[Rfam]
RNA sequence: GAAAGAUCGGGUAGAUACCCGGUUGGGCGUCCACUGGAUGCCUCAAUUAGG
Numbered sequence: 001g002a003a004a005g006a007u008c009g010g011g012u013a014g015a016u017a018c019c020c021g022g023u024u025g026g027g028c029g030u031c032c033a034c035u036g037g038a039u040g041c042c043u044c045a046a047u048u049a050g051g
Stems, first nucleotide, its partner, number of pairs: 005024008025043007
The record is a 51-nucleotide sequence, which matches "S4-Clostridia ribosomal protein leader" in Rfam. Pairs were carried over by alignment from the consensus structure, which is taken from published work. Clan: Ribosomal Protein S4 Leader clan. Rfam's curators put it in the seed alignment. By type it is a cis-regulatory leader. A reference for the family is Eckert and Weinberg (2020), "Discovery of 20 novel ribosomal leader candidates in bacteria and archaea", BMC Microbiol.